[Rfam]
RNA sequence: AUGAUUGAAGUCUGAGAUCACACCGCGGCAGAUGCCGCAGGGGUAGCCGAAGGAGCAAUGAUAUCGUUCGCCAAAUGAUGUCAAAAACUCUCAGGCAAAAGGAAGGCUUCAGGAUA
Numbered sequence: 001a002u003g004a005u006u007g008a009a010g011u012c013u014g015a016g017a018u019c020a021c022a023c024c025g026c027g028g029c030a031g032a033u034g035c036c037g038c039a040g041g042g043g044u045a046g047c048c049g050a051a052g053g054a055g056c057a058a059u060g061a062u063a064u065c066g067u068u069c070g071c072c073a074a075a076u077g078a079u080g081u082c083a084a085a086a087a088c089u090c091u092c093a094g095g096c097a098a099a100a101g102g103a104a105g106g107c108u109u110c111a112g113g114a115u116a
Base pairs, nucleotide, nucleotide: 006111007110008109009108010107011106012105013104020044021043023041046096047095048094049092050091053090054089055088059083060082061081062080063079064078065077066076067075

A member of the RNA family "Glycine riboswitch aptamer" from Acidaminobacter hydrogenoformans, 116 nucleotides long.